[Rfam]
Nucleotides: 261
Stems, first nucleotide, its partner, number of pairs: 001062007010030002013027002017024002031051004065248004070103008106242009116232001127161002131155008141256006164211008
Number, partner (000 for none) and nucleotide at each position: 001062g002061u003060a004059a005058a006057g007056g008000g009000a010030u011029c012000c013027c014026g015000g016000c017024c018023c019000u020000g021000a022000a023018g024017g025000c026014c027013g028000a029011g030010a031051c032050u033049u034048c035000a036000a037000c038000c039000c040000c041000c042000g043000u044000g045000a046000u047000c048034g049033a050032a051031g052000g053000c054000u055000g056007c057006c058005u059004u060003u061002a062001c063000c064000a065248g066247a067246c068245c069000c070103a071102g072101c073100c074099a075098u076097c077096a078000c079000c080000u081000g082000u083000c084000a085000g086000g087000a088000g089000g090000u091000g092000a093000c094000c095000u096077u097076g098075a099074u100073g101072g102071c103070u104000a105000c106242g107241u108240u109239c110238c111237g112236c113235a114234c115000a116232g117000g118000a119000c120000a121000g122000c123000a124000g125000a126000c127161c128160c129000a130000c131155c132154a133153g134152g135151c136150c137149g138148u139000g140000c141256u142255u143254c144253c145252u146251c147000a148138g149137c150136g151135g152134c153133c154132u155131g156000c157000u158000c159000u160128g161127g162000a163000a164211u165210c166209c167208g168207u169206g170205c171204c172000a173000g174000c175000a176000g177000a178000c179000a180000c181000u182000c183000c184000c185000c186000g187000g188000a189000u190000c191000g192000g193000g194000a195000a196000c197000g198000a199000a200000a201000c202000g203000g204171g205170g206169c207168a208167c209166g210165g211164a212000c213000a214000c215000c216000g217000c218000g219000c220000a221000a222000u223000u224000g225000c226000g227000g228000u229000a230000c231000c232116c233000g234114g235113u236112g237111u238110g239109g240108a241107a242106c243000a244000u245068g246067g247066u248065c249000g250000a251146g252145g253144g254143g255142a256141g257000a258000c259000c260000a261000c